[Rfam]
RNA sequence: CUUCAGCGAGCCCAGCCAAAGGGGCCGGUCCGCGUCCCGCUCGCGGCCGUACGUGGCGAGGAGCGCCUGUGCCUC
Numbered sequence: 001c002u003u004c005a006g007c008g009a010g011c012c013c014a015g016c017c018a019a020a021g022g023g024g025c026c027g028g029u030c031c032g033c034g035u036c037c038c039g040c041u042c043g044c045g046g047c048c049g050u051a052c053g054u055g056g057c058g059a060g061g062a063g064c065g066c067c068u069g070u071g072c073c074u075c
Stems, first nucleotide, its partner, number of pairs: 015025003031071003038065002047056003

Notes: This 75-nucleotide sequence from Streptomyces triculaminicus belongs to the Rfam family "ASpks TB sRNA". By type it is an antisense RNA. The match comes from Rfam's covariance-model search (71 bits). The base pairs follow the family's consensus structure, which is taken from published work.